RNA sequence: CCAGUGGCUCUUUUAAGAGCCACUCAUUUCUCUUGAAAAAUCAAAU
Numbered sequence: 001c002c003a004g005u006g007g008c009u010c011u012u013u014u015a016a017g018a019g020c021c022a023c024u025c026a027u028u029u030c031u032c033u034u035g036a037a038a039a040a041u042c043a044a045a046u
Stems, first nucleotide, its partner, number of pairs: 006021006
RNA: Histone 3' UTR stem-loop
Organism: Anguilla anguilla